About this RNA
This 52-nucleotide sequence belongs to the Rfam family "ffh sRNA". On this family, see Meyer et al., BMC Genomics 2009: "Identification of candidate structured RNAs in the marine organism 'Candidatus Pelagibacter ubique'". It scores 64 bits against the family's covariance model. By type it is a small RNA. The family's consensus secondary structure is taken from published work.
[Rfam]
RNA sequence: GGUUACGGGGAUCGCCCCCCACCAGCGUGUUACGCCCGUGGGGGCAAUUGCG
Numbered sequence: 001g002g003u004u005a006c007g008g009g010g011a012u013c014g015c016c017c018c019c020c021a022c023c024a025g026c027g028u029g030u031u032a033c034g035c036c037c038g039u040g041g042g043g044g045c046a047a048u049u050g051c052g
Stems, first nucleotide, its partner, number of pairs: 016044007025035004